[Rfam]
RNA sequence: CGGUGAGGUAGAGGAGCGGGCAAUAUUAGUAAUCAGCUGGAGAAUGACAACGAUGAAAGCUGUGAAAGGGUUGUUUGCCGAAGCAUAAUAAGGGUCAAACUUAUUUAUAGCUGGUAUAUCUUUGAAAAAGGGAUAUACUGUCAUGCAUUGGUGUGCAUGGAGCACUAUUGAUCGA
Numbered sequence: 001c002g003g004u005g006a007g008g009u010a011g012a013g014g015a016g017c018g019g020g021c022a023a024u025a026u027u028a029g030u031a032a033u034c035a036g037c038u039g040g041a042g043a044a045u046g047a048c049a050a051c052g053a054u055g056a057a058a059g060c061u062g063u064g065a066a067a068g069g070g071u072u073g074u075u076u077g078c079c080g081a082a083g084c085a086u087a088a089u090a091a092g093g094g095u096c097a098a099a100c101u102u103a104u105u106u107a108u109a110g111c112u113g114g115u116a117u118a119u120c121u122u123u124g125a126a127a128a129a130g131g132g133a134u135a136u137a138c139u140g141u142c143a144u145g146c147a148u149u150g151g152u153g154u155g156c157a158u159g160g161a162g163c164a165c166u167a168u169u170g171a172u173c174g175a
Stems, first nucleotide, its partner, number of pairs: 007169005016078009032063001034062005082112003087105006113139011141160007